[Rfam]
RNA sequence: CAUUAGUUAUAUGACUGACGGAAGUGGAAUUGACCACAGGGAGUAUAAUAAAUCAAAAUGAAGAAGCCGACCGUCUGGGCAAAGAAG
Numbered sequence: 001c002a003u004u005a006g007u008u009a010u011a012u013g014a015c016u017g018a019c020g021g022a023a024g025u026g027g028a029a030u031u032g033a034c035c036a037c038a039g040g041g042a043g044u045a046u047a048a049u050a051a052a053u054c055a056a057a058a059u060g061a062a063g064a065a066g067c068c069g070a071c072c073g074u075c076u077g078g079g080c081a082a083a084g085a086a087g
Stems, first nucleotide, its partner, number of pairs: 003052002006049007015040002017075005024037004066080003
RNA: ZMP/ZTP riboswitch aptamer (pfl RNA motif)